[Rfam]
RNA: Bacterial RNase P class A
RNA sequence: GAAGUUCGCUGGACCGCCGCUGGUGCUGGUGCCGAAAGGCCGCACUGGAGGAACGUCCGGACUGCAUAGGGCGGCGUAGCAGCUAACGGCUGUCCACCGUGAGGUGAGGAUCAGAGCAACAGAGACGAGUCUGGCAGGAGUGCCGCAAGGCAGACCAUCCAGGGUGAAACGGGCAAUCUCUACGCGCAGCAAUACCAAGUAGGCACACGUUGACGGGGCCCCCGGAGUGUGCGGGUAGGUAGCAUCGAGCUGGUGGGGCGACCCCCAGCCCAGAGUAAUGGCGGUCACGCAGCGGGCAACCGUUGUGCACAGAAUCCGGCUUACAGGCGAACUUCACAC
Numbered sequence: 001g002a003a004g005u006u007c008g009c010u011g012g013a014c015c016g017c018c019g020c021u022g023g024u025g026c027u028g029g030u031g032c033c034g035a036a037a038g039g040c041c042g043c044a045c046u047g048g049a050g051g052a053a054c055g056u057c058c059g060g061a062c063u064g065c066a067u068a069g070g071g072c073g074g075c076g077u078a079g080c081a082g083c084u085a086a087c088g089g090c091u092g093u094c095c096a097c098c099g100u101g102a103g104g105u106g107a108g109g110a111u112c113a114g115a116g117c118a119a120c121a122g123a124g125a126c127g128a129g130u131c132u133g134g135c136a137g138g139a140g141u142g143c144c145g146c147a148a149g150g151c152a153g154a155c156c157a158u159c160c161a162g163g164g165u166g167a168a169a170c171g172g173g174c175a176a177u178c179u180c181u182a183c184g185c186g187c188a189g190c191a192a193u194a195c196c197a198a199g200u201a202g203g204c205a206c207a208c209g210u211u212g213a214c215g216g217g218g219c220c221c222c223c224g225g226a227g228u229g230u231g232c233g234g235g236u237a238g239g240u241a242g243c244a245u246c247g248a249g250c251u252g253g254u255g256g257g258g259c260g261a262c263c264c265c266c267a268g269c270c271c272a273g274a275g276u277a278a279u280g281g282c283g284g285u286c287a288c289g290c291a292g293c294g295g296g297c298a299a300c301c302g303u304u305g306u307g308c309a310c311a312g313a314a315u316c317c318g319g320c321u322u323a324c325a326g327g328c329g330a331a332c333u334u335c336a337c338a339c
Stems, first nucleotide, its partner, number of pairs: 001335010011324001012286007020048007028040001053322001055320001057319005062189004069221004074185005079093005094108001095106004109180002114178002116174002131163002133159001193241004203232006214224003249269005255264003